[Rfam]
RNA sequence: ACGGAUGUGGUGAAAAGGUAGACACGUUAUAUUUAGGAUAUAAUGGUAUUAUACUAUGUGGGUUCAAAUCCCACCAUCCGUA
Numbered sequence: 001a002c003g004g005a006u007g008u009g010g011u012g013a014a015a016a017g018g019u020a021g022a023c024a025c026g027u028u029a030u031a032u033u034u035a036g037g038a039u040a041u042a043a044u045g046g047u048a049u050u051a052u053a054c055u056a057u058g059u060g061g062g063u064u065c066a067a068a069u070c071c072c073a074c075c076a077u078c079c080g081u082a
Stems, first nucleotide, its partner, number of pairs: 001081007010025003027043005058074005
Dot-bracket structure: (((((((..(((..........))).(((((.......)))))..............(((((.......)))))))))))).

tRNA: an 82-nucleotide sequence from Coemansia sp. RSA 1813. The family's consensus secondary structure is taken from published work. NCBI's taxonomy places the organism under Eukaryota, Kickxellomycotina, Kickxellomycetes, Kickxellaceae, Coemansia.